[Rfam]
RNA: mir-296 microRNA precursor family
Organism: Tupaia belangeri
RNA sequence: AGGGCCCCCCCUCAAUCCUGUUGUGCUUGGUUCAGAGGGUUGGGUGGAGGCUCU
Numbered sequence: 001a002g003g004g005c006c007c008c009c010c011c012u013c014a015a016u017c018c019u020g021u022u023g024u025g026c027u028u029g030g031u032u033c034a035g036a037g038g039g040u041u042g043g044g045u046g047g048a049g050g051c052u053c054u
Base pairs, nucleotide, nucleotide: 001054002053003052004051005050006049008047009046010044011043013042014041015040016039017038018037019036021035022034023033